[Rfam]
This 140-nucleotide RNA from Amphiplicatus metriothermophilus belongs to the Rfam family "SAM riboswitch aptamer (S box leader)".
Taxonomically the source falls in Amphiplicatus (Bacteria, Pseudomonadati, Parvularculales, Parvularculaceae).
Its family is annotated with regulation of gene expression in the Gene Ontology.
The family's consensus secondary structure is taken from published work.
It scores 73 bits against the family's covariance model.

RNA sequence: UGCUCAUCGAGACCGGCUGAGGGACAGGCCCUGUGACGCCGGGGCAACCACCCAAGGGGAACGCCGCUCCCCGCGGGAAAGGUGCCAACUCCUGCGGUGGCGGAAAGGCUUCGGCCGGCCCGCCAGCCGAGAGAUGAGGA
Numbered sequence: 001u002g003c004u005c006a007u008c009g010a011g012a013c014c015g016g017c018u019g020a021g022g023g024a025c026a027g028g029c030c031c032u033g034u035g036a037c038g039c040c041g042g043g044g045c046a047a048c049c050a051c052c053c054a055a056g057g058g059g060a061a062c063g064c065c066g067c068u069c070c071c072c073g074c075g076g077g078a079a080a081g082g083u084g085c086c087a088a089c090u091c092c093u094g095c096g097g098u099g100g101c102g103g104a105a106a107g108g109c110u111u112c113g114g115c116c117g118g119c120c121c122g123c124c125a126g127c128c129g130a131g132a133g134a135u136g137a138g139g140a
Stems, first nucleotide, its partner, number of pairs: 001140001003138006013042005021031003025094004043086004048082002051077003090132001095129004100124001